[Rfam]
RNA: c-di-AMP riboswitch aptamer (ydaO/yuaA leader)
RNA sequence: CGGCACCAGUCGUCCAGGGCAUGGAGCGGGGGACCCGACGUUCCACGGUGCAGGUCACCUCGGGGUGAAGCCGCCCACCGGCGGCCGGGCUCCUCGGCCCGAACCCGACAGCUCACCCCGUCGGCGUGGAGGAACCAAUGC
Numbered sequence: 001c002g003g004c005a006c007c008a009g010u011c012g013u014c015c016a017g018g019g020c021a022u023g024g025a026g027c028g029g030g031g032g033a034c035c036c037g038a039c040g041u042u043c044c045a046c047g048g049u050g051c052a053g054g055u056c057a058c059c060u061c062g063g064g065g066u067g068a069a070g071c072c073g074c075c076c077a078c079c080g081g082c083g084g085c086c087g088g089g090c091u092c093c094u095c096g097g098c099c100c101g102a103a104c105c106c107g108a109c110a111g112c113u114c115a116c117c118c119c120g121u122c123g124g125c126g127u128g129g130a131g132g133a134a135c136c137a138a139u140g141c
Stems, first nucleotide, its partner, number of pairs: 001123001006024002026121006036062002063106003071084004087100004